Rfam assigns this 88-nucleotide RNA from Manihot esculenta to the family "mir-160 microRNA precursor family". Rfam 15.1 lists 1,502 matches to the family in 247 species. NCBI's taxonomy places the organism under Eukaryota, Streptophytina, Spermatophyta, Crotonoideae, Manihot. Rfam links the family to the GO terms RISC complex and miRNA-mediated post-transcriptional gene silencing.

RNA sequence: GCCUGCCUGGCUCCCUGAAUGCCAUCUAAGAAGCUUGUCAAAGAAUGUUGGCAGCCUUCUUACUUGGCAUGAAGGGAGUCAAGCAGGC
Numbered sequence: 001g002c003c004u005g006c007c008u009g010g011c012u013c014c015c016u017g018a019a020u021g022c023c024a025u026c027u028a029a030g031a032a033g034c035u036u037g038u039c040a041a042a043g044a045a046u047g048u049u050g051g052c053a054g055c056c057u058u059c060u061u062a063c064u065u066g067g068c069a070u071g072a073a074g075g076g077a078g079u080c081a082a083g084c085a086g087g088c
Stems, first nucleotide, its partner, number of pairs: 001088006008081007016073001019070006027062003